The family of this 75-nucleotide RNA from Roseateles toxinivorans is "SAH (S-adenosyl-L-homocysteine) riboswitch aptamer". Lineage of the source: Bacteria > Pseudomonadota > Betaproteobacteria > Sphaerotilaceae > Roseateles.

RNA sequence: CAUUCCAAGGAGCGUUGCAACCCCGCACCAUGCGUGGCCAGGCUUGGAGUCUUGUAGCAACGGCGCUCACCCGCA
Numbered sequence: 001c002a003u004u005c006c007a008a009g010g011a012g013c014g015u016u017g018c019a020a021c022c023c024c025g026c027a028c029c030a031u032g033c034g035u036g037g038c039c040a041g042g043c044u045u046g047g048a049g050u051c052u053u054g055u056a057g058c059a060a061c062g063g064c065g066c067u068c069a070c071c072c073g074c075a
Base pairs, nucleotide, nucleotide: 002050003049004048005047006046007045008044021037022036024034025033026032